Nucleotides: 064
Stems, first nucleotide, its partner, number of pairs: 002017003006014003027042006
Number, partner (000 for none) and nucleotide at each position: 001000u002017g003016g004015c005000a006014c007013c008012u009000a010000c011000g012008g013007g014006g015004g016003c017002c018000u019000u020000c021000a022000c023000a024000u025000c026000a027042g028041g029040u030039c031038u032037c033000u034000u035000c036000g037032g038031g039030g040029a041028c042027c043000g044000c045000c046000a047000a048000g049000c050000a051000a052000a053000c054000g055000g056000a057000a058000g059000a060000a061000g062000c063000u064000a